[Rfam]
RNA sequence: GCCCCCGGUGCCUACUGAGCUGACACGCAGUCGUUGGUCGCACACUGGCUCAGUUCAGCAGGAACAGGGG
Numbered sequence: 001g002c003c004c005c006c007g008g009u010g011c012c013u014a015c016u017g018a019g020c021u022g023a024c025a026c027g028c029a030g031u032c033g034u035u036g037g038u039c040g041c042a043c044a045c046u047g048g049c050u051c052a053g054u055u056c057a058g059c060a061g062g063a064a065c066a067g068g069g070g
Base pairs, nucleotide, nucleotide: 003070004069005068006067008065009064011062012061013060015058016057017056018055019054020053021052022051023050028047029046030045031044
Source information
mir-24 microRNA precursor family: a 70-nucleotide RNA from Gallus gallus. The base pairs follow the family's consensus structure, which was predicted with RNAalifold. A search with the family's covariance model found it, with a score of 79 bits. Taxonomically the source falls in Gallus (Eukaryota, Craniata, Vertebrata, Archelosauria).